[Rfam]
RNA sequence: CUUUUUGCGGUCUGGGCUUGCUGUUCCUUGAACCAGUAGCCAGGAAGCCCUUACCCCAAAAAGUA
Number, nucleotide and partner (000 for none) at each position: 001c063002u062003u061004u060005u059006u058007g057008c000009g055010g054011u053012c000013u000014g050015g049016g048017c047018u000019u045020g000021c043022u042023g000024u000025u000026c000027c000028u000029u000030g000031a000032a000033c000034c000035a000036g000037u000038a000039g000040c000041c000042a022043g021044g000045a019046a000047g017048c016049c015050c014051u000052u000053a011054c010055c009056c000057c007058a006059a005060a004061a003062a002063g001064u000065a000
Shown here is a 65-nucleotide RNA from Ictalurus punctatus, a member of the family "mir-129 microRNA precursor family". The base pairs follow the family's consensus structure, which was predicted with RNAalifold. The sequence is in the family's curated seed alignment. The family has 56 seed sequences and 1,242 matches in Rfam 15.1. For this family Rfam cites "Identification of tissue-specific microRNAs from mouse" (Lagos-Quintana et al., Curr Biol, 2002). Rfam links the family to the GO terms synapse, long-term synaptic potentiation and gene silencing by miRNA.